[Rfam]
Nucleotides: 121
Base pairs, nucleotide, nucleotide: 020110021109022108023107026104029101030100031099033097034096035095036094038092039091040090041089042088043087
Number, partner (000 for none) and nucleotide at each position: 001000g002000a003000u004000u005000g006000a007000u008000u009000g010000g011000a012000c013000g014000a015000u016000g017000a018000c019000u020110g021109u022108c023107a024000c025000a026104u027000g028000u029101c030100a031099c032000g033097u034096u035095c036094u037000g038092a039091u040090u041089g042088g043087a044000c045000g046000u047000u048000g049000a050000c051000a052000a053000c054000a055000a056000c057000a058000a059000u060000a061000c062000a063000u064000u065000u066000u067000c068000a069000u070000a071000g072000u073000c074000u075000a076000u077000a078000g079000a080000a081000u082000c083000a084000a085000c086000g087043u088042u089041c090040a091039a092038u093000u094036a095035g096034a097033a098000c099031g100030u101029g102000a103000c104026a105000c106000g107023u108022g109021g110020u111000a112000g113000u114000c115000a116000a117000u118000g119000u120000u121000c